[Rfam]
RNA: A. fumigatus sRNA Afu_309
RNA sequence: CUUCCUUCAACAAACACGGGUUUGUGCCCAGCGAUCCUUUGCCCGUACGCGGGUCAGAGUUGAUUACUGCGGCAGCUCGAUCGUUCAAGGAGCCAUCAAAUUCUCAUGAUGUCAAUUUUCCGAUCGACAGAUCCAAGAACAACCGGUCUUUAGGAAGCCAGAUUCGCCUUCGGGCUGAGUUAGGUGAAAUAUUGUACUGGGGACGUCAUAUUCCGUACCUUUUUUCCGAGAUCGUCGAUCUAUGAGGUUGGGGUAAACCAUGACUAGCCACAUAC
Number, nucleotide and partner (000 for none) at each position: 001c000002u000003u000004c000005c000006u000007u000008c000009a000010a000011c000012a000013a000014a000015c000016a000017c000018g134019g133020g132021u131022u130023u129024g128025u127026g073027c072028c071029c069030a068031g067032c000033g065034a064035u063036c062037c059038u058039u057040u056041g055042c053043c052044c051045g050046u000047a000048c000049g000050c045051g044052g043053g042054u000055c041056a040057g039058a038059g037060u000061u000062g036063a035064u034065u033066a000067c031068u030069g029070c000071g028072g027073c026074a000075g000076c000077u000078c000079g000080a000081u126082c000083g124084u123085u122086c000087a000088a000089g113090g112091a000092g110093c000094c108095a000096u000097c000098a000099a000100a000101u000102u000103c000104u000105c000106a000107u000108g094109a000110u092111g000112u090113c089114a000115a000116u000117u000118u000119u000120c000121c000122g085123a084124u083125c000126g081127a025128c024129a023130g022131a021132u020133c019134c018135a000136a000137g000138a000139a000140c000141a000142a000143c000144c000145g000146g197147u196148c000149u000150u000151u000152a000153g000154g000155a000156a000157g185158c184159c183160a000161g181162a180163u179164u178165c177166g176167c174168c173169u000170u000171c000172g000173g168174g167175c000176u166177g165178a164179g163180u162181u161182a000183g159184g158185u157186g000187a000188a000189a000190u000191a000192u000193u000194g000195u000196a147197c146198u000199g000200g000201g000202g269203a000204c267205g264206u263207c262208a261209u260210a000211u000212u000213c000214c000215g000216u000217a000218c253219c252220u251221u000222u250223u000224u000225u000226c247227c246228g000229a000230g240231a239232u238233c237234g000235u000236c000237g233238a232239u231240c230241u000242a000243u000244g000245a000246g227247g226248u000249u000250g222251g220252g219253g218254u000255a000256a000257a000258c000259c000260a209261u208262g207263a206264c205265u000266a000267g204268c000269c202270a000271c000272a000273u000274a000275c000